[Rfam]
RNA sequence: GUGCACUGUCUGUGAUGAAGCCUGUGUUGGUAGGGACAUCUGAGACUUGAUGAAUGCCAACAGCUCUGAUGGCGGCGC
Numbered sequence: 001g002u003g004c005a006c007u008g009u010c011u012g013u014g015a016u017g018a019a020g021c022c023u024g025u026g027u028u029g030g031u032a033g034g035g036a037c038a039u040c041u042g043a044g045a046c047u048u049g050a051u052g053a054a055u056g057c058c059a060a061c062a063g064c065u066c067u068g069a070u071g072g073c074g075g076c077g078c
Stems, first nucleotide, its partner, number of pairs: 001078004
Dot-bracket structure: ((((......................................................................))))

Small nucleolar RNA SNORD74: a 78-nucleotide sequence from Orycteropus afer. Lineage of the source: Eukaryota > Eumetazoa > Dipnotetrapodomorpha > Orycteropodidae > Orycteropus afer. The match comes from Rfam's covariance-model search (92 bits). It is annotated as a C/D-box small nucleolar RNA. On this family, see Galardi et al., Mol Cell Biol 2002: "Purified box C/D snoRNPs are able to reproduce site-specific 2'-O-methylation of target RNA in vitro". Gene Ontology terms of the family: RNA processing and nucleolus. Clan: SNORD74 clan.